[Rfam]
RNA sequence: AGCUUUGCACAGUGGCAGUAUCAUAACCAAUGAAGUUAAUCUGAGAGUGUGAUUAUUGCUACUGAAAAUCUGCUCCUUUCCUGGUGAGAUGGUACAGUACUACUGGAACAGCAGAAACUGUUACCAUCUCCCCCUUUUGUUACACUCACCAGU
Numbered sequence: 001a002g003c004u005u006u007g008c009a010c011a012g013u014g015g016c017a018g019u020a021u022c023a024u025a026a027c028c029a030a031u032g033a034a035g036u037u038a039a040u041c042u043g044a045g046a047g048u049g050u051g052a053u054u055a056u057u058g059c060u061a062c063u064g065a066a067a068a069u070c071u072g073c074u075c076c077u078u079u080c081c082u083g084g085u086g087a088g089a090u091g092g093u094a095c096a097g098u099a100c101u102a103c104u105g106g107a108a109c110a111g112c113a114g115a116a117a118c119u120g121u122u123a124c125c126a127u128c129u130c131c132c133c134c135u136u137u138u139g140u141u142a143c144a145c146u147c148a149c150c151a152g153u
Stems, first nucleotide, its partner, number of pairs: 020053005026048002028045001034042002084133001086131001087129008095120004147152001
About this RNA: Rfam assigns this 153-nucleotide sequence from Chelonoidis abingdonii to the family "U4 spliceosomal RNA". It scores 54 bits against the family's covariance model. Lineage of the source: Eukaryota > Bilateria > Craniata > Sauria > Chelonoidis nigra species complex. By type it is a spliceosomal small nuclear RNA.